A member of the RNA family "Bacterial large subunit ribosomal RNA" from Gemmata obscuriglobus, 584 nucleotides of a longer RNA.
Gene Ontology terms of the family: ribosome and structural constituent of ribosome.
The family's consensus secondary structure is taken from published work.
For this family Rfam cites "Crystal structure of the ribosome at 5.5 A resolution" (Yusupov et al., Science, 2001).
RNA sequence: CCCGCAGCUAGACGGAAAGACCCCGUGAACCUUAACUGCAGCUUGGUAUUGGGUUUAGACCCAGCAUGCGUAGCGUAGGUGGGAGGCUAUGAGCGGCGCAUCUCGGUGCGCCGGGAGCCAACGAUGAAACACCACCCUUGCUGUGUUUGAAUUCUAACCCGUCGUGUGGAACGACAGGGACCGUGCUAAGUGGGCAGUUUGAUUGGGGCGAUCUCCUCCUAAACGGUAACGGAGGAGUGCAACGGUACCCUCAGCCCGGUUGGCAAUCGGGCAUCGAGCGUAAAGGUAUAAGGGUGCUUGACUGCGAGCCCGAUGGGGCGAGCAGGGACGAAAGUCGGCCUUAGUGAUCCGGUGGUCCCGGAUGGAAGGGCCAUCGCUCAACAGAUAAAAGGUACUCCGGGGAUAACAGGCUUAUCUCCUCUGAGCGUUCAUAGCGGCGAGGAGGUUUGGCACCUCGAUGUCGGCUCAUCACAUCCUGGGGGUGGAGAAGCUCCCAAGGGUUCGGCUGUUCGCCGAUGAAAGUGGUACGUGAGCUGGGUUUAGACCGUCGUGAGACAGGUCGGUCCCUAUCUGCUGUGGGCGGA
Numbered sequence: 001c002c003c004g005c006a007g008c009u010a011g012a013c014g015g016a017a018a019g020a021c022c023c024c025g026u027g028a029a030c031c032u033u034a035a036c037u038g039c040a041g042c043u044u045g046g047u048a049u050u051g052g053g054u055u056u057a058g059a060c061c062c063a064g065c066a067u068g069c070g071u072a073g074c075g076u077a078g079g080u081g082g083g084a085g086g087c088u089a090u091g092a093g094c095g096g097c098g099c100a101u102c103u104c105g106g107u108g109c110g111c112c113g114g115g116a117g118c119c120a121a122c123g124a125u126g127a128a129a130c131a132c133c134a135c136c137c138u139u140g141c142u143g144u145g146u147u148u149g150a151a152u153u154c155u156a157a158c159c160c161g162u163c164g165u166g167u168g169g170a171a172c173g174a175c176a177g178g179g180a181c182c183g184u185g186c187u188a189a190g191u192g193g194g195c196a197g198u199u200u201g202a203u204u205g206g207g208g209c210g211a212u213c214u215c216c217u218c219c220u221a222a223a224c225g226g227u228a229a230c231g232g233a234g235g236a237g238u239g240c241a242a243c244g245g246u247a248c249c250c251u252c253a254g255c256c257c258g259g260u261u262g263g264c265a266a267u268c269g270g271g272c273a274u275c276g277a278g279c280g281u282a283a284a285g286g287u288a289u290a291a292g293g294g295u296g297c298u299u300g301a302c303u304g305c306g307a308g309c310c311c312g313a314u315g316g317g318g319c320g321a322g323c324a325g326g327g328a329c330g331a332a333a334g335u336c337g338g339c340c341u342u343a344g345u346g347a348u349c350c351g352g353u354g355g356u357c358c359c360g361g362a363u364g365g366a367a368g369g370g371c372c373a374u375c376g377c378u379c380a381a382c383a384g385a386u387a388a389a390a391g392g393u394a395c396u397c398c399g400g401g402g403a404u405a406a407c408a409g410g411c412u413u414a415u416c417u418c419c420u421c422u423g424a425g426c427g428u429u430c431a432u433a434g435c436g437g438c439g440a441g442g443a444g445g446u447u448u449g450g451c452a453c454c455u456c457g458a459u460g461u462c463g464g465c466u467c468a469u470c471a472c473a474u475c476c477u478g479g480g481g482g483u484g485g486a487g488a489a490g491c492u493c494c495c496a497a498g499g500g501u502u503c504g505g506c507u508g509u510u511c512g513c514c515g516a517u518g519a520a521a522g523u524g525g526u527a528c529g530u531g532a533g534c535u536g537g538g539u540u541u542a543g544a545c546c547g548u549c550g551u552g553a554g555a556c557a558g559g560u561c562g563g564u565c566c567c568u569a570u571c572u573g574c575u576g577u578g579g580g581c582g583g584a
Stems, first nucleotide, its partner, number of pairs: 001580008010572003014567002022401004027397002029393005035198004042190007051154010062143005068137001078136005085119003094113008158178002161175005201213004214236006237382001239339002245297006251277002254272006278287002302325004308319003327336003350376007358369002410451003414448001415445007425435002462537001463535004467529001468526005475500002478495006502516005543561004547556003